[Rfam]
RNA: Enterococcus sRNA A9
Organism: Peptoclostridium litorale
RNA sequence: AUAAAAGUAUAUAAAAUAUUACAAAAACCAUAAAAAGCGCCUUUAAAGCAUAAAGGCGCUUU
Numbered sequence: 001a002u003a004a005a006a007g008u009a010u011a012u013a014a015a016a017u018a019u020u021a022c023a024a025a026a027a028c029c030a031u032a033a034a035a036a037g038c039g040c041c042u043u044u045a046a047a048g049c050a051u052a053a054a055g056g057c058g059c060u061u062u
Base pairs, nucleotide, nucleotide: 006020007019008018009017034062035061036060037059038058039057040056041055042054043053044052045051